[Rfam]
RNA sequence: GUGGCGGUGUAGUCCCAGCUGGCGUCGGCGUCCAGCAGGGCAUUCUCGCCGAACCGGUCGCCGUCGCCGAGGACGCCGAUCACCGCGUCGUCACCGUACUUGCCGGUGGAGACCUGGUUGAUCUUGCCGUGCGCGAUCAGGUGGAUCUUGUCGGACGGGGUGCCGCGCUCCACCAGGGUCUCCCCGGCCCGGAACUCGCGCUGCACGCACCGGUCGGCGAUCGCCGACAGCACGUCGUCGUCCUCGAAGCCGCGCAGCAGGGCGAGUUCACCGAGCUCCCGGGGGAUGACCCGGACGUCGCCGCCGGUCUGGAUGAACUCGAUCCGGCCGUCGCCGACCGUGUAGGUCAGGCGCCGGUUGACCCGGUAGGUACCGCCGGAGGUCUGCACCCAGGGCAGCAUCCGCAGCAGCCAGCGGGAGGUGAUCUCCUGCAUCUGCGGUGCGGACUUGGUGGUGGUCGCCAGGUUGCGUGCGGCGGCGGUGGUGAGGCUGGUCUG
Numbered sequence: 001g002u003g004g005c006g007g008u009g010u011a012g013u014c015c016c017a018g019c020u021g022g023c024g025u026c027g028g029c030g031u032c033c034a035g036c037a038g039g040g041c042a043u044u045c046u047c048g049c050c051g052a053a054c055c056g057g058u059c060g061c062c063g064u065c066g067c068c069g070a071g072g073a074c075g076c077c078g079a080u081c082a083c084c085g086c087g088u089c090g091u092c093a094c095c096g097u098a099c100u101u102g103c104c105g106g107u108g109g110a111g112a113c114c115u116g117g118u119u120g121a122u123c124u125u126g127c128c129g130u131g132c133g134c135g136a137u138c139a140g141g142u143g144g145a146u147c148u149u150g151u152c153g154g155a156c157g158g159g160g161u162g163c164c165g166c167g168c169u170c171c172a173c174c175a176g177g178g179u180c181u182c183c184c185c186g187g188c189c190c191g192g193a194a195c196u197c198g199c200g201c202u203g204c205a206c207g208c209a210c211c212g213g214u215c216g217g218c219g220a221u222c223g224c225c226g227a228c229a230g231c232a233c234g235u236c237g238u239c240g241u242c243c244u245c246g247a248a249g250c251c252g253c254g255c256a257g258c259a260g261g262g263c264g265a266g267u268u269c270a271c272c273g274a275g276c277u278c279c280c281g282g283g284g285g286a287u288g289a290c291c292c293g294g295a296c297g298u299c300g301c302c303g304c305c306g307g308u309c310u311g312g313a314u315g316a317a318c319u320c321g322a323u324c325c326g327g328c329c330g331u332c333g334c335c336g337a338c339c340g341u342g343u344a345g346g347u348c349a350g351g352c353g354c355c356g357g358u359u360g361a362c363c364c365g366g367u368a369g370g371u372a373c374c375g376c377c378g379g380a381g382g383u384c385u386g387c388a389c390c391c392a393g394g395g396c397a398g399c400a401u402c403c404g405c406a407g408c409a410g411c412c413a414g415c416g417g418g419a420g421g422u423g424a425u426c427u428c429c430u431g432c433a434u435c436u437g438c439g440g441u442g443c444g445g446a447c448u449u450g451g452u453g454g455u456g457g458u459c460g461c462c463a464g465g466u467u468g469c470g471u472g473c474g475g476c477g478g479c480g481g482u483g484g485u486g487a488g489g490c491u492g493g494u495c496u497g
Stems, first nucleotide, its partner, number of pairs: 006390007014382002018328002021325002025322004031316002036312001038310004047303002050300003058229001061226001063224002065111001067109002075103001077102003082097002085094001117222001119220001122217002127212001129210002131206001133204003140197001143196002149191002154188001156186005161175002234296003240290003244286002250282003254278001256277003260271001262269001329342003352378002355375003361371003391431005397425001399423003403418001405416001407415001437476002440473001442471003446467001447465006487496002
About this RNA:
A member of the RNA family "Saccharopolyspora sRNA 350" from Kitasatospora griseola, 497 nucleotides long. Lineage of the source: Bacteria > Bacillati > Actinomycetota > Kitasatosporales > Kitasatospora. A search with the family's covariance model found it, with a score of 188 bits. Pairs were carried over by alignment from the consensus structure, which was predicted with RNAfold. Rfam links the family to the GO term regulation of secondary metabolite biosynthetic process.